RNA sequence: GAUAUCAAAACCACACUUUCGCUCCCUGACCUAUAUAGGCCUCUGCUAUGGGGGUGAUGGCCAGUCCUGGUGUCUGAGUGGUU
Numbered sequence: 001g002a003u004a005u006c007a008a009a010a011c012c013a014c015a016c017u018u019u020c021g022c023u024c025c026c027u028g029a030c031c032u033a034u035a036u037a038g039g040c041c042u043c044u045g046c047u048a049u050g051g052g053g054g055u056g057a058u059g060g061c062c063a064g065u066c067c068u069g070g071u072g073u074c075u076g077a078g079u080g081g082u083u
Stems, first nucleotide, its partner, number of pairs: 001082001003080003015071003021065003024060002027057001029055004036050002038047003
RNA: Small nucleolar RNA SNORD86